This 135-nucleotide RNA sequence from Halomonas sp. BC04 belongs to the Rfam family "TPP riboswitch aptamer (THI element)". It scores 74 bits against the family's covariance model. Lineage of the source: Bacteria > Pseudomonadota > Gammaproteobacteria > Halomonadaceae > Halomonas.
Nucleotides: 135
Base pairs, nucleotide, nucleotide: 006123007122008121009120010119011085012084013083014082016079017031018030019029020028021027038078039077040076041075091116092115093114094113097110098109099108100107
Number, partner (000 for none) and nucleotide at each position: 001000c002000a003000a004000c005000g006123c007122u008121u009120g010119a011085c012084g013083g014082g015000g016079u017031g018030c019029c020028g021027g022000u023000g024000g025000a026000a027021c028020c029019g030018g031017c032000u033000g034000a035000g036000a037000u038078c039077g040076c041075c042000a043000u044000a045000u046000g047000a048000c049000a050000c051000g052000c053000a054000c055000g056000g057000c058000a059000g060000u061000g062000c063000g064000a065000c066000u067000g068000u069000c070000a071000u072000c073000a074000c075041g076040g077039c078038g079016g080000g081000g082014c083013c084012c085011g086000u087000a088000g089000a090000a091116c092115c093114u094113g095000a096000u097110c098109c099108g100107g101000c102000u103000c104000g105000u106000a107100c108099c109098g110097g111000c112000g113094u114093a115092g116091g117000g118000a119010u120009c121008a122007a123006g124000c125000g126000g127000u128000g129000g130000c131000c132000c133000u134000g135000a